About this RNA: Rfam assigns this 75-nucleotide sequence to the family "Small nucleolar RNA snoR53Y". The family has 7 seed sequences and 513 matches in Rfam 15.1. The sequence is in the family's curated seed alignment. On this family, see Brown et al., RNA 2001: "Multiple snoRNA gene clusters from Arabidopsis".

RNA sequence: AUUCCCUAUGAUGGUAAUAACCAUGCUAAUACUGAUGUCUUGUGACUGAAUCAAAGUUAUGUGUCUGAGGGAAUU
Dot-bracket structure: (((((................................................................))))).
Numbered sequence: 001a002u003u004c005c006c007u008a009u010g011a012u013g014g015u016a017a018u019a020a021c022c023a024u025g026c027u028a029a030u031a032c033u034g035a036u037g038u039c040u041u042g043u044g045a046c047u048g049a050a051u052c053a054a055a056g057u058u059a060u061g062u063g064u065c066u067g068a069g070g071g072a073a074u075u
Stems, first nucleotide, its partner, number of pairs: 001074005